Rfam assigns this 113-nucleotide sequence from Thalictrum thalictroides to the family "Small nucleolar RNA snoR104". The family's consensus secondary structure was predicted with WAR.

RNA sequence: AAGGAAAAUCCUAGAGCGAGAUGUUACCUGAUACAAUCUUCCCACAAAAAUUUCUGUAACUGCUGGUAGUUCUGCAGACUAGUUCUACAAGUCUCGAAUUACCGUACAUUUGA
Numbered sequence: 001a002a003g004g005a006a007a008a009u010c011c012u013a014g015a016g017c018g019a020g021a022u023g024u025u026a027c028c029u030g031a032u033a034c035a036a037u038c039u040u041c042c043c044a045c046a047a048a049a050a051u052u053u054c055u056g057u058a059a060c061u062g063c064u065g066g067u068a069g070u071u072c073u074g075c076a077g078a079c080u081a082g083u084u085c086u087a088c089a090a091g092u093c094u095c096g097a098a099u100u101a102c103c104g105u106a107c108a109u110u111u112g113a
Base pairs, nucleotide, nucleotide: 001029003027005025006024008022009021010020052106054104062092063091064090066088067087068086069085072082073081
Dot-bracket structure: (.(.((.(((.........))).)).).)......................(.(.......(((.((((..((.......))..)))).)))...........).).......
The literature on the family includes a 2002 paper in Curr Biol by Marker et al., "Experimental RNomics: identification of 140 candidates for small non-messenger RNAs in the plant Arabidopsis thaliana".
The organism belongs to Thalictrum, within Eukaryota.